RNA sequence: CCGUGCUAGAUGGGGAGGUAGCGGUGCCCUGUAACUCGCAAUCCGCUGUAGCGAGGUUGAAUUCCUGUCUGAGGUUGUGCCUAUGCGGGGCCUUGGCUUCUGUGAAUAGUGUUGACGGUUGGGUCCUCCGCAAUGGACGCUUGUGAACCCGGUCAGGUCCGGAAGGAAGCAGCCAUAAGCAAGUUAGUCUAUGUGCCGGGGGAGUGCCUGGCUCGAGCAGGGAUCAGACAUGCCGCCCGGGUUGCAUUAAUCGGGGACAGGUGCACGG
Numbered sequence: 001c002c003g004u005g006c007u008a009g010a011u012g013g014g015g016a017g018g019u020a021g022c023g024g025u026g027c028c029c030u031g032u033a034a035c036u037c038g039c040a041a042u043c044c045g046c047u048g049u050a051g052c053g054a055g056g057u058u059g060a061a062u063u064c065c066u067g068u069c070u071g072a073g074g075u076u077g078u079g080c081c082u083a084u085g086c087g088g089g090g091c092c093u094u095g096g097c098u099u100c101u102g103u104g105a106a107u108a109g110u111g112u113u114g115a116c117g118g119u120u121g122g123g124u125c126c127u128c129c130g131c132a133a134u135g136g137a138c139g140c141u142u143g144u145g146a147a148c149c150c151g152g153u154c155a156g157g158u159c160c161g162g163a164a165g166g167a168a169g170c171a172g173c174c175a176u177a178a179g180c181a182a183g184u185u186a187g188u189c190u191a192u193g194u195g196c197c198g199g200g201g202g203a204g205u206g207c208c209u210g211g212c213u214c215g216a217g218c219a220g221g222g223a224u225c226a227g228a229c230a231u232g233c234c235g236c237c238c239g240g241g242u243u244g245c246a247u248u249a250a251u252c253g254g255g256g257a258c259a260g261g262u263g264c265a266c267g268g
Stems, first nucleotide, its partner, number of pairs: 001268006009058003012030004017025001019023001035055005064261007073252005081244001083242002086239004093232001099228004107221001109218002117213008125202006131193002134191005139184006151174003158167003
A member of the RNA family "Bacterial large signal recognition particle RNA" from a Paenibacillaceae bacterium, 268 nucleotides long. The family's RNA type in Rfam is non-coding RNA gene. The family's consensus secondary structure is taken from published work. The family is grouped with related families in Rfam's "SRP clan". Taxonomically the source falls in Paenibacillaceae (Bacteria, Bacillati, Bacillota, Bacilli).